Rfam assigns this 149-nucleotide RNA sequence to the family "Bacteriophage Diversity-Generating Retroelement RNA".
RNA sequence: GCUCGGCACAGGCCACGGCCUCGCCGGCCGGUCACAGCACAACUGUGGUCAGCUCGACUCUCCUGCUUCGGCAAACACACUGCGCGGUCCGGCAGAGCGGGGCGUAGCGGCGGUUCAGCGCAGAACUGCCGUCGAGACCCGCGGCCGGC
Numbered sequence: 001g002c003u004c005g006g007c008a009c010a011g012g013c014c015a016c017g018g019c020c021u022c023g024c025c026g027g028c029c030g031g032u033c034a035c036a037g038c039a040c041a042a043c044u045g046u047g048g049u050c051a052g053c054u055c056g057a058c059u060c061u062c063c064u065g066c067u068u069c070g071g072c073a074a075a076c077a078c079a080c081u082g083c084g085c086g087g088u089c090c091g092g093c094a095g096a097g098c099g100g101g102g103c104g105u106a107g108c109g110g111c112g113g114u115u116c117a118g119c120g121c122a123g124a125a126c127u128g129c130c131g132u133c134g135a136g137a138c139c140c141g142c143g144g145c146c147g148g149c
Base pairs, nucleotide, nucleotide: 001028002027004026005025006024007023012019013018064073065072066071087149089148090147091146092145093144098141099140100139101138107133108131109130110129111128112127113126114125115124116123